[Rfam]
RNA sequence: ACGAGAUGAAGAAUUAUUAUAUUCAUAGUCUGUCAAUCCCCUGAUCCCAGUUUUCUGGGUUUGAUGACACAAUGAAUCCCGACAGGUUCUGAUCGU
Numbered sequence: 001a002c003g004a005g006a007u008g009a010a011g012a013a014u015u016a017u018u019a020u021a022u023u024c025a026u027a028g029u030c031u032g033u034c035a036a037u038c039c040c041c042u043g044a045u046c047c048c049a050g051u052u053u054u055c056u057g058g059g060u061u062u063g064a065u066g067a068c069a070c071a072a073u074g075a076a077u078c079c080c081g082a083c084a085g086g087u088u089c090u091g092a093u094c095g096u
Base pairs, nucleotide, nucleotide: 001096002095003094004093
This 96-nucleotide RNA sequence from Chenopodium quinoa belongs to the Rfam family "Small nucleolar RNA snoR14". For this family Rfam cites "Multiple snoRNA gene clusters from Arabidopsis" (Brown et al., RNA, 2001). The pairing is the family consensus, mapped onto this sequence. A search with the family's covariance model found it, with a score of 64 bits.